[Rfam]
RNA sequence: UGUGAGGGCGAUCUGGUUGCGACAUCUGUCACCCCAUUGAUCGCCAGGGUUGAUUCGGCUGAUCUGGCUGGCUAGGCGGGUGUCCCCUUCCUCCCUCACCGCUCCAUGUGCGUCCCUCCCGAAGCUGCGCGCUCGGUCGAAGAGGACAACCAUCCCCGCUAGAGGAGGACCGGUCUUCGGUCAAGGGUAUACGAGUAGCUGCGCUCCCCUGCUAGAACCUCCAAACAAGCUCUCAAGUUCUUAAUAACUUCUGCUCGUGGUAGGAGGUCACACCAUUUCUGUCCUUUGUUAUGCCCAUCUUUGUAUCUGUAUUUUUAUGGGGUUACUUAAAAU
Numbered sequence: 001u002g003u004g005a006g007g008g009c010g011a012u013c014u015g016g017u018u019g020c021g022a023c024a025u026c027u028g029u030c031a032c033c034c035c036a037u038u039g040a041u042c043g044c045c046a047g048g049g050u051u052g053a054u055u056c057g058g059c060u061g062a063u064c065u066g067g068c069u070g071g072c073u074a075g076g077c078g079g080g081u082g083u084c085c086c087c088u089u090c091c092u093c094c095c096u097c098a099c100c101g102c103u104c105c106a107u108g109u110g111c112g113u114c115c116c117u118c119c120c121g122a123a124g125c126u127g128c129g130c131g132c133u134c135g136g137u138c139g140a141a142g143a144g145g146a147c148a149a150c151c152a153u154c155c156c157c158g159c160u161a162g163a164g165g166a167g168g169a170c171c172g173g174u175c176u177u178c179g180g181u182c183a184a185g186g187g188u189a190u191a192c193g194a195g196u197a198g199c200u201g202c203g204c205u206c207c208c209c210u211g212c213u214a215g216a217a218c219c220u221c222c223a224a225a226c227a228a229g230c231u232c233u234c235a236a237g238u239u240c241u242u243a244a245u246a247a248c249u250u251c252u253g254c255u256c257g258u259g260g261u262a263g264g265a266g267g268u269c270a271c272a273c274c275a276u277u278u279c280u281g282u283c284c285u286u287u288g289u290u291a292u293g294c295c296c297a298u299c300u301u302u303g304u305a306u307c308u309g310u311a312u313u314u315u316u317a318u319g320g321g322g323u324u325a326c327u328u329a330a331a332a333u
Base pairs, nucleotide, nucleotide: 002099003098004097005096006095007094008093010090011089015087016086021084022083023082024081025080026079027078028077029076030075032071033070034067035066036065039064040063041062042061043059044058045057113168114167115165116164117163118162119136120135121134122133124132125131138158139157144155145154146153198274200272205267208264209263210262211261212260219259221257228255229254297333298332303326304325305324306321307320308319309318310317